[Rfam]
RNA: TPP riboswitch aptamer (THI element)
Organism: Agarivorans albus
RNA sequence: GCUCUCUUGUCGGAGUGCCGAAAGGCUGAGACCACGGUUAGCUAAGCUACGUUGUGUGGGAUCCGUAUAACUUGAUCAGGAUAAUGCCUGCGCAGGGAACAAGAUAAGUAAUCAA
Numbered sequence: 001g002c003u004c005u006c007u008u009g010u011c012g013g014a015g016u017g018c019c020g021a022a023a024g025g026c027u028g029a030g031a032c033c034a035c036g037g038u039u040a041g042c043u044a045a046g047c048u049a050c051g052u053u054g055u056g057u058g059g060g061a062u063c064c065g066u067a068u069a070a071c072u073u074g075a076u077c078a079g080g081a082u083a084a085u086g087c088c089u090g091c092g093c094a095g096g097g098a099a100c101a102a103g104a105u106a107a108g109u110a111a112u113c114a115a
Stems, first nucleotide, its partner, number of pairs: 006103005011065004016059001017026003033058004071096004077090004